[Rfam]
RNA sequence: AGGGAGGAAGCCGAAAAUCCAUCAAAGAGUAGGCA
Dot-bracket structure: ..(((....[[[.....)))...........]]].
Numbered sequence: 001a002g003g004g005a006g007g008a009a010g011c012c013g014a015a016a017a018u019c020c021a022u023c024a025a026a027g028a029g030u031a032g033g034c035a
Stems, first nucleotide, its partner, number of pairs: 003020003010034003
About this RNA:
This 35-nucleotide sequence belongs to the Rfam family "DUF805b RNA". The base pairs follow the family's consensus structure, which is taken from published work. Rfam's curators put it in the seed alignment.